[Rfam]
RNA: Eukaryotic large subunit ribosomal RNA, nucleotides 1867 to 2353
Organism: Carpinus fangiana
RNA sequence: UAGAACAAUGUAGAUAAGGGAAGUCGGCAAAACAGAUCCGUAACUUCGGGAAAAGGAUUGGCUCUAAGGGUCGGGCGCGUCGGGCCUUGGGCCGAUGGCAGCGGAGCAGGUCGGCACUAGCCUCACGGCCGGCGCCUUCCAGCACCGCGGUCGGGCGCCCUUGGCAGGCCUCGUGCCGUCCGGCGCGCGCUUAACGACCAACUUAGAACUGUCACGGACAAGGGGAAUCUGACUGUCUAAUUAAAACAUAGCAUUGCGAUGGCCAGAAAGUGGUGUUGACGCAAUGUGAUUUCUGCCCAGUGCUCUGAAUGUCAAAGCGAUGCAAUUCGACCAAGCGCGGGUAAACGGCGGGAGUAACUAUGACUCUCUUAAGGUAGCCAAAUGCCUCGUCAUCUAAUUAGUGACGCGCAUGAAUGGAUUAACGAGAUUCCCACUGUCCCUAUCUACUAUCUAGCGAAACCACAGCCAAGGGAACGGGCUUGGCAGA
Numbered sequence: 001u002a003g004a005a006c007a008a009u010g011u012a013g014a015u016a017a018g019g020g021a022a023g024u025c026g027g028c029a030a031a032a033c034a035g036a037u038c039c040g041u042a043a044c045u046u047c048g049g050g051a052a053a054a055g056g057a058u059u060g061g062c063u064c065u066a067a068g069g070g071u072c073g074g075g076c077g078c079g080u081c082g083g084g085c086c087u088u089g090g091g092c093c094g095a096u097g098g099c100a101g102c103g104g105a106g107c108a109g110g111u112c113g114g115c116a117c118u119a120g121c122c123u124c125a126c127g128g129c130c131g132g133c134g135c136c137u138u139c140c141a142g143c144a145c146c147g148c149g150g151u152c153g154g155g156c157g158c159c160c161u162u163g164g165c166a167g168g169c170c171u172c173g174u175g176c177c178g179u180c181c182g183g184c185g186c187g188c189g190c191u192u193a194a195c196g197a198c199c200a201a202c203u204u205a206g207a208a209c210u211g212u213c214a215c216g217g218a219c220a221a222g223g224g225g226a227a228u229c230u231g232a233c234u235g236u237c238u239a240a241u242u243a244a245a246a247c248a249u250a251g252c253a254u255u256g257c258g259a260u261g262g263c264c265a266g267a268a269a270g271u272g273g274u275g276u277u278g279a280c281g282c283a284a285u286g287u288g289a290u291u292u293c294u295g296c297c298c299a300g301u302g303c304u305c306u307g308a309a310u311g312u313c314a315a316a317g318c319g320a321u322g323c324a325a326u327u328c329g330a331c332c333a334a335g336c337g338c339g340g341g342u343a344a345a346c347g348g349c350g351g352g353a354g355u356a357a358c359u360a361u362g363a364c365u366c367u368c369u370u371a372a373g374g375u376a377g378c379c380a381a382a383u384g385c386c387u388c389g390u391c392a393u394c395u396a397a398u399u400a401g402u403g404a405c406g407c408g409c410a411u412g413a414a415u416g417g418a419u420u421a422a423c424g425a426g427a428u429u430c431c432c433a434c435u436g437u438c439c440c441u442a443u444c445u446a447c448u449a450u451c452u453a454g455c456g457a458a459a460c461c462a463c464a465g466c467c468a469a470g471g472g473a474a475c476g477g478g479c480u481u482g483g484c485a486g487a
Stems, first nucleotide, its partner, number of pairs: 001453004010447007018439003035059005044049001060210002063207006069199005075188009084165003089160003097152003101148004106143002109140002113136003117132002120129003211215001223432007230424002234248003251287008262274004291418003295349003300346002302342004307338001310337003318329003350368006369373001389405005466483005